[Rfam]
RNA sequence: GCGGAGACAAAAUGUUUCCGUUCACUCCUCACACCACACUCCGCCCCAGCGAUCGCUGGGGCGGUU
Numbered sequence: 001g002c003g004g005a006g007a008c009a010a011a012a013u014g015u016u017u018c019c020g021u022u023c024a025c026u027c028c029u030c031a032c033a034c035c036a037c038a039c040u041c042c043g044c045c046c047c048a049g050c051g052a053u054c055g056c057u058g059g060g061g062c063g064g065u066u
Base pairs, nucleotide, nucleotide: 001021002020003019004018005017006016007015008014042063043062044061045060046059047058048057

The family of this 66-nucleotide RNA from Neosynechococcus sphagnicola is "Cyanobacterial functional RNA 1". A reference for the family is Voss et al. (2007), "A motif-based search in bacterial genomes identifies the ortholog of the small RNA Yfr1 in all lineages of cyanobacteria", BMC Genomics.